[Rfam]
Shown here is a 125-nucleotide RNA from Plectus sambesii, a member of the family "Vault RNA". The organism belongs to Plectus, within Eukaryota. Rfam's curators write: This family of RNAs are found as part of the enigmatic vault ribonucleoprotein complex. The complex consists of a major vault protein (MVP), two minor vault proteins (VPARP and TEP1), and several small untranslated RNA molecules. It has been suggested that the vault complex is involved in drug resistance. It scores 47 bits against the family's covariance model. Rfam classes the family as a non-coding RNA gene.
Nucleotides: 125
Stems, first nucleotide, its partner, number of pairs: 002120006012109004018104003025089005
Number, partner (000 for none) and nucleotide at each position: 001000g002120u003119g004118c005117c006116g007115g008000c009000a010000u011000a012109g013108c014107c015106g016000a017000a018104u019103g020102g021000u022000u023000a024000c025089u026088u027087c028086a029085c030000u031000g032000a033000a034000a035000u036000u037000g038000u039000a040000a041000u042000c043000g044000u045000c046000g047000c048000c049000g050000c051000c052000u053000a054000c055000u056000c057000g058000c059000a060000u061000a062000g063000g064000u065000u066000g067000a068000c069000a070000g071000c072000c073000u074000c075000a076000u077000u078000a079000u080000g081000c082000g083000g084000c085029g086028u087027g088026a089025a090000a091000a092000c093000c094000g095000c096000a097000c098000a099000u100000a101000a102020c103019c104018a105000a106015c107014g108013g109012c110000g111000c112000c113000g114000u115007c116006u117005g118004g119003c120002a121000c122000u123000u124000u125000u